[Rfam]
RNA sequence: AAUCCGAAAGGGCAAAACCGCCGAAAGGCGGUGGCGCAAAGCCAAGGGUCUAAAGCCUUUAAAGGCCAUGACAGCCAGGCUGCCGAA
Numbered sequence: 001a002a003u004c005c006g007a008a009a010g011g012g013c014a015a016a017a018c019c020g021c022c023g024a025a026a027g028g029c030g031g032u033g034g035c036g037c038a039a040a041g042c043c044a045a046g047g048g049u050c051u052a053a054a055g056c057c058u059u060u061a062a063a064g065g066c067c068a069u070g071a072c073a074g075c076c077a078g079g080c081u082g083c084c085g086a087a
Stems, first nucleotide, its partner, number of pairs: 012037002017032006040081004046076002048072003055066004
c-di-GMP-I riboswitch aptamer: an 87-nucleotide sequence from Thermovirga lienii. Pairs were carried over by alignment from the consensus structure, which is taken from published work.